[Rfam]
RNA: Alphaproteobacteria transfer-messenger RNA
RNA sequence: CCUCUUGCAAAAAGCCCAUGUGCUCCUUAUGUUCAGCAGUGCAGGAGGGGCUUGCCCCUUGGCUAUGGCGAUAAACGGAACGUGGAAUAAGCGUAGUGGACCCGGGGGCAGUACCCGGCGUCUCCACCAUAAAAAUCCGGCCUUUACGGGCAUGGACAGAUGGGGACGAAACAGGCUCGACACGCGUGGUAAAGACCUUCCUUUUGCCCGGCAUUGUACCACCGUUAUCGGGCUAAACUUACAAGUGCCAACGAUAACUCAGAGGUGCUCGCUGUUGCUGCAUAAGCGAUAAGCGCGGUUCGGGAGGGCACCGGGCAACAGAAGCCCUCCCACU
Number, nucleotide and partner (000 for none) at each position: 001c000002c000003u000004c000005u000006u000007g000008c000009a000010a000011a000012a000013a000014g000015c000016c000017c000018a000019u000020g000021u000022g000023c000024u000025c000026c000027u000028u000029a000030u000031g000032u000033u000034c000035a000036g000037c000038a000039g000040u000041g063042c062043a000044g000045g000046a000047g000048g000049g000050g000051c000052u000053u000054g000055c000056c000057c000058c000059u000060u000061g000062g042063c041064u000065a000066u000067g208068g207069c206070g205071a204072u000073a000074a000075a000076c000077g201078g200079a199080a198081c000082g196083u195084g000085g000086a000087a000088u000089a000090a000091g000092c186093g185094u184095a000096g183097u182098g181099g000100a000101c000102c118103c117104g116105g115106g114107g000108g000109c000110a000111g000112u000113a000114c106115c105116c104117g103118g102119c168120g167121u166122c165123u164124c163125c162126a000127c000128c000129a000130u000131a000132a000133a000134a000135a000136u000137c000138c000139g000140g000141c000142c000143u000144u000145u000146a000147c000148g000149g000150g000151c000152a000153u000154g000155g000156a000157c000158a000159g000160a000161u000162g125163g124164g123165g122166a121167c120168g119169a000170a000171a000172c000173a000174g000175g000176c000177u000178c000179g000180a000181c098182a097183c096184g094185c093186g092187u000188g000189g000190u000191a000192a000193a000194g000195a083196c082197c000198u080199u079200c078201c077202u000203u000204u071205u070206g069207c068208c067209c224210g223211g222212c000213a000214u235215u000216g233217u000218a000219c231220c230221a000222c211223c210224g209225u000226u000227a000228u000229c000230g220231g219232g000233c216234u000235a214236a000237a000238c000239u000240u000241a000242c000243a000244a000245g000246u000247g000248c000249c000250a000251a000252c000253g000254a000255u000256a000257a000258c000259u000260c000261a000262g000263a000264g000265g000266u000267g000268c000269u000270c000271g000272c000273u000274g000275u000276u000277g000278c000279u000280g000281c000282a000283u000284a000285a000286g000287c000288g000289a000290u000291a000292a000293g000294c000295g000296c313297g312298g311299u310300u000301c000302g000303g330304g329305a328306g327307g326308g325309c000310a299311c298312c297313g296314g000315g000316c000317a000318a000319c000320a000321g000322a000323a000324g000325c308326c307327c306328u305329c304330c303331c000332a000333c000334u000